[Rfam]
RNA: Bacterial RNase P class A
RNA sequence: UCGGUCGGCCGGACGGUCGCCGCCGGGCGGGGGCAACCUCGUUUGGGGGAGGAAAGUCCGGGCUCCAUAGGGCGCGGUGGUGGGUAACGCCCACCCCCCGUAACGGUCAGGGCCCCGGCCCGGAUCGCCAAGGGGCGGGACAGUGCAACAGAAAGUAAACCGCCCGGGCUCCGGCCCGGGUAAGGGUGAAAAGGUGCGGGGCGAAAGCCCUUAAUGUAAGAGCGCACCAGCGGCGGGGUGACCCGUCGGCUCGGCAAACCCCACCGGGAGCAAGGCCAAGCAGGGGGACAGGGUCGGCCCGGCCCGUCACGAACCCCCGGGUAGGCUGCUCGAUCCCGCGGGUAACCGCGGGGCUAGAUAAAUGACCGUCACCGCCCGGCAACGGGCGGGACAAAACCCGGCUUACAGGCCGGCCGGCAAA
Numbered sequence: 001u002c003g004g005u006c007g008g009c010c011g012g013a014c015g016g017u018c019g020c021c022g023c024c025g026g027g028c029g030g031g032g033g034c035a036a037c038c039u040c041g042u043u044u045g046g047g048g049g050a051g052g053a054a055a056g057u058c059c060g061g062g063c064u065c066c067a068u069a070g071g072g073c074g075c076g077g078u079g080g081u082g083g084g085u086a087a088c089g090c091c092c093a094c095c096c097c098c099c100g101u102a103a104c105g106g107u108c109a110g111g112g113c114c115c116c117g118g119c120c121c122g123g124a125u126c127g128c129c130a131a132g133g134g135g136c137g138g139g140a141c142a143g144u145g146c147a148a149c150a151g152a153a154a155g156u157a158a159a160c161c162g163c164c165c166g167g168g169c170u171c172c173g174g175c176c177c178g179g180g181u182a183a184g185g186g187u188g189a190a191a192a193g194g195u196g197c198g199g200g201g202c203g204a205a206a207g208c209c210c211u212u213a214a215u216g217u218a219a220g221a222g223c224g225c226a227c228c229a230g231c232g233g234c235g236g237g238g239u240g241a242c243c244c245g246u247c248g249g250c251u252c253g254g255c256a257a258a259c260c261c262c263a264c265c266g267g268g269a270g271c272a273a274g275g276c277c278a279a280g281c282a283g284g285g286g287g288a289c290a291g292g293g294u295c296g297g298c299c300c301g302g303c304c305c306g307u308c309a310c311g312a313a314c315c316c317c318c319g320g321g322u323a324g325g326c327u328g329c330u331c332g333a334u335c336c337c338g339c340g341g342g343u344a345a346c347c348g349c350g351g352g353g354c355u356a357g358a359u360a361a362a363u364g365a366c367c368g369u370c371a372c373c374g375c376c377c378g379g380c381a382a383c384g385g386g387c388g389g390g391a392c393a394a395a396a397c398c399c400g401g402c403u404u405a406c407a408g409g410c411c412g413g414c415c416g417g418c419a420a421a
Stems, first nucleotide, its partner, number of pairs: 001417010011406001012370007020049002023046009054404003058401005063270004070300004075266005080094005095137001096135004138261002143259002145255002160185002162181008193228006230250001231248007274327004284318004291305005334353008